[Rfam]
RNA: Small nucleolar RNA R12
Organism: Zizania palustris
RNA sequence: AUCUGGGUGAUGAAGAAAAUCAGAUGGAUUCCCAUUGAUUUUUCAAAAUGAUAUCAAUAACUAGCUACUUUUUACAGAU
Numbered sequence: 001a002u003c004u005g006g007g008u009g010a011u012g013a014a015g016a017a018a019a020u021c022a023g024a025u026g027g028a029u030u031c032c033c034a035u036u037g038a039u040u041u042u043u044c045a046a047a048a049u050g051a052u053a054u055c056a057a058u059a060a061c062u063a064g065c066u067a068c069u070u071u072u073u074a075c076a077g078a079u
Stems, first nucleotide, its partner, number of pairs: 001079005
Dot-bracket structure: (((((.....................................................................)))))